RNA sequence: UACACCAUUAUUUGUAAGUCGCUUUGGAUAAAAGCAUCUGCCAUAUGUAAUAUA
Numbered sequence: 001u002a003c004a005c006c007a008u009u010a011u012u013u014g015u016a017a018g019u020c021g022c023u024u025u026g027g028a029u030a031a032a033a034g035c036a037u038c039u040g041c042c043a044u045a046u047g048u049a050a051u052a053u054a
Stems, first nucleotide, its partner, number of pairs: 013043001014041003021035005
Dot-bracket structure: ............((((....(((((.....)))))...))).)...........
RNA: UnaL2 LINE 3' element
Organism: Astyanax mexicanus